[Rfam]
RNA: Selenocysteine insertion sequence 1
Organism: Orycteropus afer
RNA sequence: CCGACCUUAAUGAUGUGAAUAGAGUAAAGCUUUCAGGACCUCUAUUUGCUGAUGUGACAGGUCUC
Number, nucleotide and partner (000 for none) at each position: 001c000002c000003g063004a062005c061006c000007u000008u000009a000010a000011u000012g000013a000014u000015g049016u048017g047018a046019a045020u044021a043022g042023a041024g040025u000026a000027a000028a000029g000030c037031u036032u000033u000034c000035a000036g031037g030038a000039c000040c024041u023042c022043u021044a020045u019046u018047u017048g016049c015050u000051g000052a000053u000054g000055u000056g000057a000058c000059a000060g000061g005062u004063c003064u000065c000